[Rfam]
RNA sequence: GUACUUACCUGGAUGGGGUCUAUGGGUGAUCAAAAAGACUCAUGGCCUUGGUUAGUGACCUUCAUUGCACUUAGGAGGGGUGCUAUCCUAAGAUCGACCCAAGUGGUCGAGUCUACAUCGUAAUUUGUUGUUGUGGGGGCCUGCGUUCGCGCGGCCCCUAA
Number, nucleotide and partner (000 for none) at each position: 001g000002u000003a000004c000005u000006u000007a000008c000009c000010u000011g000012g119013a118014u117015g116016g048017g047018g046019u045020c044021u000022a000023u042024g041025g040026g039027u038028g000029a000030u000031c000032a000033a000034a000035a000036a000037g000038a027039c026040u025041c024042a023043u000044g020045g019046c018047c017048u016049u000050g088051g087052u000053u000054a000055g083056u082057g081058a000059c079060c078061u077062u075063c074064a000065u000066u000067g000068c000069a000070c000071u000072u000073a000074g063075g062076a000077g061078g060079g059080g000081u057082g056083c055084u000085a000086u000087c051088c050089u000090a000091a114092g113093a112094u110095c109096g108097a000098c106099c105100c000101a000102a000103g000104u000105g099106g098107u000108c096109g095110a094111g000112u093113c092114u091115a000116c015117a014118u013119c012120g000121u000122a000123a000124u000125u000126u000127g000128u000129u000130g000131u000132u000133g000134u160135g159136g158137g157138g156139g000140c000141c000142u153143g152144c151145g150146u000147u000148c000149g000150c145151g144152c143153g142154g000155c000156c138157c137158c136159u135160a134161a000
This 161-nucleotide RNA sequence from Artemisia annua belongs to the Rfam family "U1 spliceosomal RNA". The organism belongs to Artemisia, within Eukaryota. The family's RNA type in Rfam is spliceosomal small nuclear RNA. The match comes from Rfam's covariance-model search (134 bits). The family is grouped with related families in Rfam's "U1 clan".